[Rfam]
RNA sequence: GGGCACCUACGGGGGCCUACAUCCGAAGGCCGGGCCUCGCGCCGCGGCCGACCACAUAGGCGGACGCCCCGACCGGGGGCGGGUCGCUGCUGACAACGGAAGACAGAAA
Numbered sequence: 001g002g003g004c005a006c007c008u009a010c011g012g013g014g015g016c017c018u019a020c021a022u023c024c025g026a027a028g029g030c031c032g033g034g035c036c037u038c039g040c041g042c043c044g045c046g047g048c049c050g051a052c053c054a055c056a057u058a059g060g061c062g063g064a065c066g067c068c069c070c071g072a073c074c075g076g077g078g079g080c081g082g083g084u085c086g087c088u089g090c091u092g093a094c095a096a097c098g099g100a101a102g103a104c105a106g107a108a109a
Stems, first nucleotide, its partner, number of pairs: 001018004006014003029090002032087001033085005